RNA sequence: UAGCUUUCUCGUCCUAAGUCAAACUUCUCGACAAAGUUUUUAGAAAAAAUAUUAACAUCUACAAGUUCAAAUAAAUGCACUGUCAAGACAUAUUUCAUGGGGAACAUAAUGAAACUAAUUUGUUGUUGUAAAUGUUGAUGUAUUUUCUUGUGAACUUCAAUCGAAGUUAAAGAAGUUUGACUUAGGACAAAAAUUGA
Numbered sequence: 001u002a003g004c005u006u007u008c009u010c011g012u013c014c015u016a017a018g019u020c021a022a023a024c025u026u027c028u029c030g031a032c033a034a035a036g037u038u039u040u041u042a043g044a045a046a047a048a049a050u051a052u053u054a055a056c057a058u059c060u061a062c063a064a065g066u067u068c069a070a071a072u073a074a075a076u077g078c079a080c081u082g083u084c085a086a087g088a089c090a091u092a093u094u095u096c097a098u099g100g101g102g103a104a105c106a107u108a109a110u111g112a113a114a115c116u117a118a119u120u121u122g123u124u125g126u127u128g129u130a131a132a133u134g135u136u137g138a139u140g141u142a143u144u145u146u147c148u149u150g151u152g153a154a155c156u157u158c159a160a161u162c163g164a165a166g167u168u169a170a171a172g173a174a175g176u177u178u179g180a181c182u183u184a185g186g187a188c189a190a191a192a193a194u195u196g197a
Stems, first nucleotide, its partner, number of pairs: 005192003011188002014185014028164004041150003045146004050140003054136005060130004068122005